[Rfam]
A member of the RNA family "TPP riboswitch aptamer (THI element)" from Priestia koreensis, 103 nucleotides long.
Rfam describes the family as follows. Vitamin B(1) in its active form thiamin pyrophosphate (TPP) is an essential coenzyme that is synthesised by coupling of pyrimidine and thiazole moieties in bacteria.
The match comes from Rfam's covariance-model search (88 bits).
The base pairs follow the family's consensus structure, which is taken from published work.
RNA sequence: AAAAUUCACUAGGGGGGCCAAUUGGCUGAGAUGAAACACUUGUUUCGAACCCUUUGAACCUGAUCUGGAUCAUACCAGCGGAGGGAAGUGAGGGGCUUAGUUG
Numbered sequence: 001a002a003a004a005u006u007c008a009c010u011a012g013g014g015g016g017g018c019c020a021a022u023u024g025g026c027u028g029a030g031a032u033g034a035a036a037c038a039c040u041u042g043u044u045u046c047g048a049a050c051c052c053u054u055u056g057a058a059c060c061u062g063a064u065c066u067g068g069a070u071c072a073u074a075c076c077a078g079c080g081g082a083g084g085g086a087a088g089u090g091a092g093g094g095g096c097u098u099a100g101u102u103g
Base pairs, nucleotide, nucleotide: 006091007090008089009088010087011053012052013051014050017026018025019024033046034045035044036043037042059084060083061082065078066077067076068075